[Rfam]
Nucleotides: 232
Stems, first nucleotide, its partner, number of pairs: 005089013020043004026037003047054002057069004092230002095227001099220006108196011119184001121153004128145006157181003162177004198208002
Number, partner (000 for none) and nucleotide at each position: 001000g002000a003000g004000u005089u006088a007087c008086g009085a010084u011083u012082g013081c014080a015079u016078g017077c018000a019000a020043g021042g022041u023040u024000a025000a026037g027036g028035u029000g030000g031000a032000a033000a034000a035028a036027c037026c038000g039000g040023a041022g042021c043020c044000g045000u046000a047054g048053c049000g050000a051000a052000a053048g054047c055000g056000a057069g058068u059067c060066u061000g062000a063000a064000a065000u066060g067059g068058g069057c070000g071000u072000a073000u074000g075000a076000a077017g078016u079015a080014u081013g082012u083011a084010g085009u086008u087007g088006u089005a090000g091000a092230c093229c094000c095227g096000a097000a098000a099220c100219c101218a102217g103216g104215u105000g106000a107000c108196c109195u110194a111193c112192c113191c114190a115189u116188g117187u118186c119184c120000a121153g122152g123151u124150u125000g126000a127000a128145g129144g130143u131142g132141c133140g134000g135000u136000a137000a138000a139000g140133c141132g142131c143130a144129c145128u146000g147000g148000a149000g150124g151123a152122c153121c154000g155000a156000a157181c158180c159179c160000g161000u162177g163176u164175c165174a166000g167000u168000u169000g170000a171000a172000a173000a174165u175164g176163g177162c178000u179159g180158g181157g182000a183000u184119g185000a186118g187117g188116u189115g190114u191113g192112g193111g194110u195109a196108g197000c198208g199207g200000u201000g202000a203000a204000a205000u206000u207199c208198c209000a210000a211000a212000c213000g214000a215104a216103c217102u218101u219100g220099g221000a222000g223000a224000u225000a226000g227095c228000u229093g230092g231000u232000u
A member of the RNA family "Bacterial large subunit ribosomal RNA" from Limosilactobacillus frumenti, 232 nucleotides of a longer RNA. Rfam 15.1 lists 51,934 matches to the family in 10,816 species. Taxonomically the source falls in Limosilactobacillus frumenti (Bacteria, Bacillota, Lactobacillales, Limosilactobacillus). The family's consensus secondary structure is taken from published work.